RNA sequence: AUGGAGACAUGGCCUAAAGCCAGACAGUGAGAGACAUGAACUCUUUAGACCAUCACUUGAACUGAUUCACAUCUCAUGUU
Numbered sequence: 001a002u003g004g005a006g007a008c009a010u011g012g013c014c015u016a017a018a019g020c021c022a023g024a025c026a027g028u029g030a031g032a033g034a035c036a037u038g039a040a041c042u043c044u045u046u047a048g049a050c051c052a053u054c055a056c057u058u059g060a061a062c063u064g065a066u067u068c069a070c071a072u073c074u075c076a077u078g079u080u
Base pairs, nucleotide, nucleotide: 004075005074006073007072010022011021012020013019027070028069029068030067
The family of this 80-nucleotide RNA from Dipodomys ordii is "ctgf/hcs24 CAESAR". By type it is a cis-regulatory element. For this family Rfam cites "Conserved repressive regulation of connective tissue growth factor/hypertrophic chondrocyte-specific gene 24 (ctgf/hcs24) enabled by different elements and factors among vertebrate species" (Mukudai et al., Biol Chem, 2003). The match comes from Rfam's covariance-model search (96 bits). Pairs were carried over by alignment from the consensus structure, which is taken from published work.